[Rfam]
RNA: Ribosomal protein L10 leader
RNA sequence: AAUACAUUCGCUGUUCAACCAAAGACAGCAGGUGCCUUUUGGCGUAAGAUGAUUCAUCGCCUGCCGAGGAAUGAGCAUUUUGAAUUUAUUUCGUUUGCUUUAAGCAUAUCGUAUGAUGAUAAAUGUUGUGCAUUCCGUUCUGCGGGAUGCACUUUUUAUUUGUUUUG
Number, nucleotide and partner (000 for none) at each position: 001a000002a000003u000004a000005c000006a000007u000008u000009c000010g000011c000012u000013g000014u000015u000016c000017a000018a000019c000020c000021a000022a000023a000024g000025a000026c000027a000028g064029c063030a062031g061032g060033u059034g043035c042036c041037u000038u000039u000040u000041g036042g035043c034044g000045u000046a000047a000048g000049a000050u000051g000052a000053u000054u000055c000056a000057u000058c000059g033060c032061c031062u030063g029064c028065c000066g000067a000068g000069g000070a000071a000072u000073g000074a000075g000076c000077a000078u000079u000080u000081u000082g000083a000084a000085u000086u000087u000088a000089u000090u000091u000092c000093g000094u000095u000096u000097g000098c000099u000100u000101u000102a000103a000104g000105c000106a000107u000108a000109u000110c000111g000112u000113a000114u000115g000116a000117u000118g000119a000120u000121a000122a000123a000124u000125g000126u000127u000128g152129u151130g150131c149132a148133u147134u146135c145136c144137g143138u000139u000140c000141u000142g000143c137144g136145g135146g134147a133148u132149g131150c130151a129152c128153u000154u000155u000156u000157u000158a000159u000160u000161u000162g000163u000164u000165u000166u000167g000